[Rfam]
RNA sequence: GGUCCCGUAGCUCAGCUGGAUAGAGCACCGGAUUCCUAAUCCGGGGGUCGUGGGUUCGAAUCCCGCCGGGGUCA
Number, nucleotide and partner (000 for none) at each position: 001g073002g072003u071004c070005c069006c068007g067008u000009a000010g026011c025012u024013c023014a000015g000016c000017u000018g000019g000020a000021u000022a000023g013024a012025g011026c010027a000028c044029c043030g042031g041032a040033u000034u000035c000036c000037u000038a000039a000040u032041c031042c030043g029044g028045g000046g000047g000048u000049c000050g066051u065052g064053g063054g062055u000056u000057c000058g000059a000060a000061u000062c054063c053064c052065g051066c050067c007068g006069g005070g004071g003072u002073c001074a000
A member of the RNA family "tRNA" from Devosia sp. YR412, 74 nucleotides long. The family's consensus secondary structure is taken from published work.